[Rfam]
RNA sequence: CUCUGGCAAAUGCCAGGGCAAAAGGAG
Numbered sequence: 001c002u003c004u005g006g007c008a009a010a011u012g013c014c015a016g017g018g019c020a021a022a023a024g025g026a027g
Base pairs, nucleotide, nucleotide: 001018002017003016004015005014006013007012
This 27-nucleotide sequence from Python bivittatus belongs to the Rfam family "L31-Firmicutes ribosomal protein leader". It scores 34 bits against the family's covariance model. The base pairs follow the family's consensus structure, which is taken from published work. The literature on the family includes a 2020 paper in BMC Microbiol by Eckert and Weinberg, "Discovery of 20 novel ribosomal leader candidates in bacteria and archaea". The family's RNA type in Rfam is cis-regulatory leader. Lineage of the source: Eukaryota > Deuterostomia > Sauropsida > Sauria > Python.